[Rfam]
RNA: Glycine riboswitch aptamer
RNA sequence: CUCUGAAAAGCGGACGCGCGAGCGUCCCGCCGACGGUGCAAGCCGACCGCUGACGUCCCGGGUGCCCCCCGGGCGCAGGCGGCCGGCGAAGCUCUCAGGCUGAUGACAGAG
Numbered sequence: 001c002u003c004u005g006a007a008a009a010g011c012g013g014a015c016g017c018g019c020g021a022g023c024g025u026c027c028c029g030c031c032g033a034c035g036g037u038g039c040a041a042g043c044c045g046a047c048c049g050c051u052g053a054c055g056u057c058c059c060g061g062g063u064g065c066c067c068c069c070c071g072g073g074c075g076c077a078g079g080c081g082g083c084c085g086g087c088g089a090a091g092c093u094c095u096c097a098g099g100c101u102g103a104u105g106a107c108a109g110a111g
Stems, first nucleotide, its partner, number of pairs: 001111005012027004029100003032096002036094001038092001042087004